Shown here is a 119-nucleotide RNA sequence, a member of the family "TPP riboswitch aptamer (THI element)".
Rfam links the family to the GO term thiamine pyrophosphate binding.
The family's consensus secondary structure is taken from published work.

[Rfam]
RNA sequence: ACUGUCUCAACGGGGUGCCGAAAUUAUUAUGCUCAGAGUAUGACGAGUAUAGGCUGAGAACUCACCCGUAGAACCUGAUCCGGGCAAUACCGGCGUAGGGAUUUGAGCUAUCAUCCAUG
Numbered sequence: 001a002c003u004g005u006c007u008c009a010a011c012g013g014g015g016u017g018c019c020g021a022a023a024u025u026a027u028u029a030u031g032c033u034c035a036g037a038g039u040a041u042g043a044c045g046a047g048u049a050u051a052g053g054c055u056g057a058g059a060a061c062u063c064a065c066c067c068g069u070a071g072a073a074c075c076u077g078a079u080c081c082g083g084g085c086a087a088u089a090c091c092g093g094c095g096u097a098g099g100g101a102u103u104u105g106a107g108c109u110a111u112c113a114u115c116c117a118u119g
Base pairs, nucleotide, nucleotide: 006107007106008105009104010103011068012067013066014065017054018053019052021050074099075098076097077096080093081092082091083090
Dot-bracket structure: .....(((((((((..(((.(............................).)))..........)))).....((((..((((......))))..))))...)))))............